[Rfam]
RNA sequence: GAUAGCCAAAGAUGAUAAAUGGAUUGAGAGUAGGUUCAGUAACUACCCGGACGUCAUGAAUUGUGGUGUCGUAUAGUCCACCCCAGAACAUCGCUUUUGCUACUAACAACAAAGCGCCAGCACCUAAGAAAAGCAGAUGAUGUCCUAAGAUAAGACCAAGUUUAUUAGCAUCAUCCCA
Numbered sequence: 001g002a003u004a005g006c007c008a009a010a011g012a013u014g015a016u017a018a019a020u021g022g023a024u025u026g027a028g029a030g031u032a033g034g035u036u037c038a039g040u041a042a043c044u045a046c047c048c049g050g051a052c053g054u055c056a057u058g059a060a061u062u063g064u065g066g067u068g069u070c071g072u073a074u075a076g077u078c079c080a081c082c083c084c085a086g087a088a089c090a091u092c093g094c095u096u097u098u099g100c101u102a103c104u105a106a107c108a109a110c111a112a113a114g115c116g117c118c119a120g121c122a123c124c125u126a127a128g129a130a131a132a133g134c135a136g137a138u139g140a141u142g143u144c145c146u147a148a149g150a151u152a153a154g155a156c157c158a159a160g161u162u163u164a165u166u167a168g169c170a171u172c173a174u175c176c177c178a
Base pairs, nucleotide, nucleotide: 136175137174138173139172140171141170145168146167147166148165
RNA: Antisense RNA which regulates isiA expression